[Rfam]
RNA: MIR1120/MIR1122 microRNA precursor family
Organism: Triticum aestivum
RNA sequence: AUACUCCCUCUGUCCCAAAAUAUAAGAACAUUUUUGACACUAUUGUAAUGUUAAAAAUGUUCUUAUAUUGUGGGACAGAGGGAGUAG
Numbered sequence: 001a002u003a004c005u006c007c008c009u010c011u012g013u014c015c016c017a018a019a020a021u022a023u024a025a026g027a028a029c030a031u032u033u034u035u036g037a038c039a040c041u042a043u044u045g046u047a048a049u050g051u052u053a054a055a056a057a058u059g060u061u062c063u064u065a066u067a068u069u070g071u072g073g074g075a076c077a078g079a080g081g082g083a084g085u086a087g
Stems, first nucleotide, its partner, number of pairs: 003085003007081005013075005019069021041047001